The record is a 52-nucleotide RNA sequence from Hydrocoleum sp. CS-953, which matches "Nitrogen stress-induced RNA 1" in Rfam. NCBI's taxonomy places the organism under Bacteria, Bacillati, Oscillatoriales, Microcoleaceae, Hydrocoleum. It scores 48 bits against the family's covariance model. On this family, see Ionescu et al., J Mol Biol 2010: "Heterocyst-specific transcription of NsiR1, a non-coding RNA encoded in a tandem array of direct repeats in cyanobacteria".
RNA sequence: UGGUAGAUGCACCCUGGUUUAGCUCUAGGCAUAAAGUCUAGAGCUUUUUUCA
Numbered sequence: 001u002g003g004u005a006g007a008u009g010c011a012c013c014c015u016g017g018u019u020u021a022g023c024u025c026u027a028g029g030c031a032u033a034a035a036g037u038c039u040a041g042a043g044c045u046u047u048u049u050u051c052a
Base pairs, nucleotide, nucleotide: 002013003012004011022044023043024042025041026040027039028038029037030036